A member of the RNA family "Streptococcus RNA 266" from Streptococcus varani, 111 nucleotides long.

RNA sequence: AAUGAUGGUUGUGUCUCUUUUCAUUAUAGGUCAUAUGGGACUUUUUGUAUACACUCAAAAAGGCUCCAUAUUUUCCACAGUGGUCUUACCCACUACAGAAAUUAUAGAGCC
Numbered sequence: 001a002a003u004g005a006u007g008g009u010u011g012u013g014u015c016u017c018u019u020u021u022c023a024u025u026a027u028a029g030g031u032c033a034u035a036u037g038g039g040a041c042u043u044u045u046u047g048u049a050u051a052c053a054c055u056c057a058a059a060a061a062g063g064c065u066c067c068a069u070a071u072u073u074u075c076c077a078c079a080g081u082g083g084u085c086u087u088a089c090c091c092a093c094u095a096c097a098g099a100a101a102u103u104a105u106a107g108a109g110c111c
Stems, first nucleotide, its partner, number of pairs: 001025005008017001028043005062111005068105003072101004079094005

Record summary
The family's RNA type in Rfam is small RNA.